Rfam assigns this 187-nucleotide RNA sequence from Anopheles gambiae to the family "drz-agam-2-2 ribozyme". Rfam links the family to the GO term catalytic activity. The literature on the family includes a 2009 paper in Science by Webb et al., "Widespread occurrence of self-cleaving ribozymes". The family's consensus secondary structure is taken from published work. The organism belongs to Anopheles gambiae, within Eukaryota.

[Rfam]
RNA sequence: AGCAAUAGUUCGCUGAUACGGGAGUGGAUCCGAAGCCUCUAGAAGGUUAACAUAGGCUCUCCACCCCCUACCCCUACGCAAUACGUCCUCGUUGUACAUAACGGUAGCAUGUCUCUCAAUUAUUCAAGCUUGGGUAUAUCGAGAAACCCAACUCCUUGGGAUGGGUUACAUAGCUAAAUUAAGAGGG
Number, nucleotide and partner (000 for none) at each position: 001a000002g000003c000004a000005a000006u000007a000008g102009u101010u100011c000012g000013c000014u000015g000016a000017u000018a000019c000020g000021g068022g067023a000024g064025u063026g062027g061028a060029u000030c056031c055032g000033a000034a000035g000036c000037c000038u000039c000040u000041a000042g000043a000044a000045g000046g000047u000048u000049a000050a000051c000052a000053u000054a000055g031056g030057c000058u000059c000060u028061c027062c026063a025064c024065c000066c000067c022068c021069u000070a000071c000072c187073c186074c185075u184076a000077c183078g000079c000080a180081a179082u178083a095084c094085g093086u000087c104088c103089u000090c000091g000092u000093u085094g084095u083096a000097c000098a000099u000100a010101a009102c008103g088104g087105u000106a000107g000108c000109a171110u170111g169112u168113c000114u000115c165116u164117c163118a000119a000120u000121u000122a162123u000124u000125c000126a000127a000128g000129c000130u151131u150132g149133g148134g147135u146136a000137u000138a000139u000140c000141g000142a000143g000144a000145a000146a135147c134148c133149c132150a131151a130152c000153u160154c159155c000156u000157u000158g000159g154160g153161a000162u122163g117164g116165g115166u000167u000168a112169c111170a110171u109172a000173g000174c000175u000176a000177a000178a082179u081180u080181a000182a000183g077184a075185g074186g073187g072